[Rfam]
RNA sequence: CAGUGCAGAGAUAAAAACACAGUUCCGGUCGGUAGUCCGGACGCAGCACGUGCUGUCAGUAACCUGCCUCCUUGGUUGUCCGUUCUUUGCAAGUCACAU
Numbered sequence: 001c002a003g004u005g006c007a008g009a010g011a012u013a014a015a016a017a018c019a020c021a022g023u024u025c026c027g028g029u030c031g032g033u034a035g036u037c038c039g040g041a042c043g044c045a046g047c048a049c050g051u052g053c054u055g056u057c058a059g060u061a062a063c064c065u066g067c068c069u070c071c072u073u074g075g076u077u078g079u080c081c082g083u084u085c086u087u088u089g090c091a092a093g094u095c096a097c098a099u
Base pairs, nucleotide, nucleotide: 004091005090006089007088008087009086010085011084022042023041025040026039027038028037043056044055045054046053047052066076067075068074
RNA: azaaromatic riboswitch aptamer (yjdF RNA)
Organism: Lacrimispora saccharolytica